[Rfam]
RNA sequence: UGGAGGACUGAGAAGGUAAGACAGAAACUUGAUGCUGUUUCUUACUGGUUAUAGCCUCCAAAAUUAGAAUAGUGCAAUGGCAAGUUUUGUUCCCCUCCUGCCAUGAGGGAGAGCAGGACUGCAUUUGCACAUAAGGC
Number, nucleotide and partner (000 for none) at each position: 001u000002g059003g058004a057005g056006g055007a000008c000009u000010g000011a000012g000013a000014a000015g046016g045017u044018a043019a040020g039021a038022c037023a036024g035025a000026a000027a000028c000029u000030u000031g000032a000033u000034g000035c024036u023037g022038u021039u020040u019041c000042u000043u018044a017045c016046u015047g000048g000049u000050u000051a000052u000053a000054g000055c006056c005057u004058c003059c002060a000061a000062a000063a000064u000065u000066a000067g000068a000069a000070u000071a000072g000073u000074g000075c000076a000077a000078u000079g000080g128081c127082a000083a000084g125085u000086u000087u000088u121089g120090u000091u000092c000093c000094c000095c116096u115097c000098c113099u112100g000101c111102c109103a000104u000105g000106a000107g000108g000109g102110a000111g101112a099113g098114c000115a096116g095117g000118a000119c000120u089121g088122c000123a000124u000125u084126u000127g081128c080129a000130c000131a000132u000133a000134a000135g000136g000137c000